[Rfam]
RNA: Small nucleolar RNA SNORD101
RNA sequence: GUUUGAAUGAUGACUUAACAUUCUUUUGUCGGAUACCCCUUCACUCUACAAUGAGUGAGAUCUUUGUUCUGACAUGC
Numbered sequence: 001g002u003u004u005g006a007a008u009g010a011u012g013a014c015u016u017a018a019c020a021u022u023c024u025u026u027u028g029u030c031g032g033a034u035a036c037c038c039c040u041u042c043a044c045u046c047u048a049c050a051a052u053g054a055g056u057g058a059g060a061u062c063u064u065u066g067u068u069c070u071g072a073c074a075u076g077c
Stems, first nucleotide, its partner, number of pairs: 001077002004074002
Dot-bracket structure: ((.((...................................................................)).))